Rfam assigns this 90-nucleotide RNA from Drosophila ananassae to the family "mir-959 microRNA precursor family". The match comes from Rfam's covariance-model search (98 bits). The family's consensus secondary structure was predicted with RNAalifold.
RNA sequence: UUUUGUUCUAUAUUCUUAGUACUCGGGUUGAUAAAGACCUUUCCUGGAGCCGCCUUUGUCAUCGGGGGUAUUAUGAAAUAUAGCUCAAAA
Numbered sequence: 001u002u003u004u005g006u007u008c009u010a011u012a013u014u015c016u017u018a019g020u021a022c023u024c025g026g027g028u029u030g031a032u033a034a035a036g037a038c039c040u041u042u043c044c045u046g047g048a049g050c051c052g053c054c055u056u057u058g059u060c061a062u063c064g065g066g067g068g069u070a071u072u073a074u075g076a077a078a079u080a081u082a083g084c085u086c087a088a089a090a
Stems, first nucleotide, its partner, number of pairs: 001090005008083007015075001017073008027063001029061008038052001041049003